The record is an 86-nucleotide RNA from Ligilactobacillus salivarius, which matches "SAM-III riboswitch aptamer (SMK box)" in Rfam.
Rfam's curators put it in the seed alignment.
[Rfam]
RNA sequence: AAUAGUUACAAUCCAUUCCCGAAAGGAUUCGUUUUAAACGAAGAUGCCUUGUAACCAAAUUACUUAUAAUAAUGGGGGAAUUAAAU
Numbered sequence: 001a002a003u004a005g006u007u008a009c010a011a012u013c014c015a016u017u018c019c020c021g022a023a024a025g026g027a028u029u030c031g032u033u034u035u036a037a038a039c040g041a042a043g044a045u046g047c048c049u050u051g052u053a054a055c056c057a058a059a060u061u062a063c064u065u066a067u068a069a070u071a072a073u074g075g076g077g078g079a080a081u082u083a084a085a086u
Base pairs, nucleotide, nucleotide: 016080017079018078019077020076023050024049025048026047028042029041030040031039032038055075056074